Overview:
This 185-nucleotide RNA sequence from Hallella bergensis belongs to the Rfam family "Bacteroidales-1 6S-Bacteroidales RNA suggested". Bacteroidales-1 was first reported in a comparative genomics-based approach of genome and metagenome sequences from Weinberg et al. 2010 In a high-resolution transcriptome map study of Bacteroides thetaiotaomicron, Ryan et al. 2020 report this sRNA as 6S RNA homologue of Bacteroides, in the study they obtain evidence of small product RNAs (pRNAs) related to 6S function. On this family, see Ryan et al., Nat Commun 2020: "A high-resolution transcriptome map identifies small RNA regulation of metabolism in the gut microbe Bacteroides thetaiotaomicron". The source organism's lineage runs through Bacteria, Pseudomonadati, Bacteroidota, Bacteroidales and Hallella bergensis.
RNA sequence: GGUUGUAUCGGUUCGAUUGGGAUACUCAUCAAAUUACAUUGAAAACCGAGAAAGCUUCUCUUGUUGAUGGCGGGCCACAUAAAGCGCAAUGCGCCUAAGCUAUAUGCCGGUGGAUUACAAAGACGGAGAGCACUCACCACUUUUAUAGUAGGAGUUUUCAUCACAUCAUCGGUAUGAUCCCCUUU
Numbered sequence: 001g002g003u004u005g006u007a008u009c010g011g012u013u014c015g016a017u018u019g020g021g022a023u024a025c026u027c028a029u030c031a032a033a034u035u036a037c038a039u040u041g042a043a044a045a046c047c048g049a050g051a052a053a054g055c056u057u058c059u060c061u062u063g064u065u066g067a068u069g070g071c072g073g074g075c076c077a078c079a080u081a082a083a084g085c086g087c088a089a090u091g092c093g094c095c096u097a098a099g100c101u102a103u104a105u106g107c108c109g110g111u112g113g114a115u116u117a118c119a120a121a122g123a124c125g126g127a128g129a130g131c132a133c134u135c136a137c138c139a140c141u142u143u144u145a146u147a148g149u150a151g152g153a154g155u156u157u158u159c160a161u162c163a164c165a166u167c168a169u170c171g172g173u174a175u176g177a178u179c180c181c182c183u184u185u
Stems, first nucleotide, its partner, number of pairs: 054131003058128002061126005068119002075113004099107002

It scores 118 bits against the family's covariance model.